[Rfam]
RNA sequence: GUUUACCUGUGUGUGAAUGGUACUUGGCACCAGGGAAGGGUGUGUUAUUCUGCAGAUCUAUGGAUGGUGUUCAGCACCAAGAACAGGUAUAUUUACCU
Numbered sequence: 001g002u003u004u005a006c007c008u009g010u011g012u013g014u015g016a017a018u019g020g021u022a023c024u025u026g027g028c029a030c031c032a033g034g035g036a037a038g039g040g041u042g043u044g045u046u047a048u049u050c051u052g053c054a055g056a057u058c059u060a061u062g063g064a065u066g067g068u069g070u071u072c073a074g075c076a077c078c079a080a081g082a083a084c085a086g087g088u089a090u091a092u093u094u095a096c097c098u
Stems, first nucleotide, its partner, number of pairs: 004089007018079004023074002026071007034059001036057001040053003
Dot-bracket structure: ...(((((((.......((((.((.(((((((.(.(...(((........)))...).).....))))))).)).))))...))))))).........